[Rfam]
RNA sequence: UCUCGGGGCCGUGACUGGCGCGCUGGAGUGGAGACAACCACGAGGAAGCGGCCCUGACGUGCGUGGGGCCACGCCCCGCGCGAGGUGAGGUCGUGCGCCUGGGCCGCUGAG
Numbered sequence: 001u002c003u004c005g006g007g008g009c010c011g012u013g014a015c016u017g018g019c020g021c022g023c024u025g026g027a028g029u030g031g032a033g034a035c036a037a038c039c040a041c042g043a044g045g046a047a048g049c050g051g052c053c054c055u056g057a058c059g060u061g062c063g064u065g066g067g068g069c070c071a072c073g074c075c076c077c078g079c080g081c082g083a084g085g086u087g088a089g090g091u092c093g094u095g096c097g098c099c100u101g102g103g104c105c106g107c108u109g110a111g
Stems, first nucleotide, its partner, number of pairs: 003057010015045002017099005028041004089105004